Rfam assigns this 78-nucleotide RNA from Brucella rhizosphaerae to the family "ybhL leader". It scores 62 bits against the family's covariance model. This family is a putative regulatory RNA structure that is found upstream of an uncharacterized membrane protein in alpha-proteobacteria. The family's RNA type in Rfam is cis-regulatory leader. Rfam links the family to the GO term regulation of gene expression.
RNA sequence: CAGGCAUGCUGGGGUCCCGCCAGCGGCGCCUGGGAGCGGCUCGAAAUGAGCCAAGCCCCGACACCGGACGGGACAAGG
Numbered sequence: 001c002a003g004g005c006a007u008g009c010u011g012g013g014g015u016c017c018c019g020c021c022a023g024c025g026g027c028g029c030c031u032g033g034g035a036g037c038g039g040c041u042c043g044a045a046a047u048g049a050g051c052c053a054a055g056c057c058c059c060g061a062c063a064c065c066g067g068a069c070g071g072g073a074c075a076a077g078g
Stems, first nucleotide, its partner, number of pairs: 014074006024066003031060004037055001